Small nucleolar RNA snoR77: a 127-nucleotide RNA from Helianthus annuus.
[Rfam]
RNA sequence: AGGCAACCACCUUUUGUAAAUUACUCGAAAGGUAGGUGUUAUUCUGCUCGUAAAUCAAUUUCUUUUGCUCUUCAGACUUGUUGAGAUUCAUACUCUAUGAAACCGGUCUAGUAAGCAUUAGUACAUU
Dot-bracket structure: .((((.((((((((((.........)))))))).)))))).....................((...(((....(((((.(((..((.......)).....))).)))))....)))...))......
The organism belongs to Helianthus, within Eukaryota. The family's RNA type in Rfam is H/ACA-box small nucleolar RNA. A search with the family's covariance model found it, with a score of 107 bits.